The family of this 143-nucleotide RNA sequence from Sinorhizobium terangae is "Brucella sRNA CI27". The literature on the family includes a 2014 paper in FEMS Microbiol Lett by Dong et al., "Identification of novel sRNAs in Brucella abortus 2308". The match comes from Rfam's covariance-model search (62 bits). Rfam classes the family as a small RNA. The organism belongs to Sinorhizobium, within Bacteria.
RNA sequence: CGCGAUCUUAGUGCAUGUCGCCCAAAAAGUGCGUAGCGGUUUUGGGACAACGACAUGCAUAAAAACAAGGACCUAAAGCGCGUCGCAUGACAAGGCGACGCGCUUUAGUGCAUGUCGCCCAAAAGUGCGUAGCGGUUUUGCGG
Numbered sequence: 001c002g003c004g005a006u007c008u009u010a011g012u013g014c015a016u017g018u019c020g021c022c023c024a025a026a027a028a029g030u031g032c033g034u035a036g037c038g039g040u041u042u043u044g045g046g047a048c049a050a051c052g053a054c055a056u057g058c059a060u061a062a063a064a065a066c067a068a069g070g071a072c073c074u075a076a077a078g079c080g081c082g083u084c085g086c087a088u089g090a091c092a093a094g095g096c097g098a099c100g101c102g103c104u105u106u107a108g109u110g111c112a113u114g115u116c117g118c119c120c121a122a123a124a125g126u127g128c129g130u131a132g133c134g135g136u137u138u139u140g141c142g143g
Stems, first nucleotide, its partner, number of pairs: 013058008022046002025043004031037001061139004066134001069111001071109001073108014088093001116129003
Dot-bracket structure: ............((((((((.((.((((..(.....)..)))).))....))))))))..((((.(..(.(.((((((((((((((.(....).))))))))))))))).)....(((........)))....).))))....